RNA sequence: CAAAAACCGAUGAGAAAGAGAAGUAGGUUUUAGAAGAGAUCACAGAGAGCAGCAGAUGGUGGGAUUGCUGUAUGGAUUCUGAUUCUGAAUGGACUUUCGAGGGCGGCCUGAAAUGAAAAGAGUAGGAACCGCCGGGAACCGAACCCGUUAUCAAUCAGGAGCGUAUGUUAGUACGUGAGAAAGUGGACGAACGUCAAUUUGAGUGGUACCGCGAUAAUAAUGAAUUUUAUUACCGUCUCAAGC
Numbered sequence: 001c002a003a004a005a006a007c008c009g010a011u012g013a014g015a016a017a018g019a020g021a022a023g024u025a026g027g028u029u030u031u032a033g034a035a036g037a038g039a040u041c042a043c044a045g046a047g048a049g050c051a052g053c054a055g056a057u058g059g060u061g062g063g064a065u066u067g068c069u070g071u072a073u074g075g076a077u078u079c080u081g082a083u084u085c086u087g088a089a090u091g092g093a094c095u096u097u098c099g100a101g102g103g104c105g106g107c108c109u110g111a112a113a114u115g116a117a118a119a120g121a122g123u124a125g126g127a128a129c130c131g132c133c134g135g136g137a138a139c140c141g142a143a144c145c146c147g148u149u150a151u152c153a154a155u156c157a158g159g160a161g162c163g164u165a166u167g168u169u170a171g172u173a174c175g176u177g178a179g180a181a182a183g184u185g186g187a188c189g190a191a192c193g194u195c196a197a198u199u200u201g202a203g204u205g206g207u208a209c210c211g212c213g214a215u216a217a218u219a220a221u222g223a224a225u226u227u228u229a230u231u232a233c234c235g236u237c238u239c240a241a242g243c
Base pairs, nucleotide, nucleotide: 007102008101015097016096017095018094026086027085030082031081039073040072049071050070051069052068053067054066104131105130106129108126109125133147134146135145165194166193167192168191169190200240201239202238203237211236212235213234215232216231217230218229219228220227
Dot-bracket structure: ......((......((((.......((..((.......((........((((((...........)))))))).......))..)).......))))...)).(((.((...............))..))).(((.........))).................(((((....................))))).....((((.......(((.((((((......)))))).)))))))...
The record is a 243-nucleotide sequence from Mediterraneibacter torques, which matches "T-box leader" in Rfam. By type it is a cis-regulatory leader. Rfam describes the family as follows. Uncharged tRNA acts as the effector for transcription antitermination of genes in the T-box leader family. T-boxes are found upstream of many aminoacyl-tRNA synthetase genes and some amino acid biosynthetic genes usually in Gram-positive bacteria. The anticodon of a specific tRNA base pairs to a specifier sequence within the T-box motif, and the NCCA acceptor tail of the tRNA base pairs to a conserved bulge in the T-box antiterminator hairpin. The organism belongs to Mediterraneibacter, within Bacteria.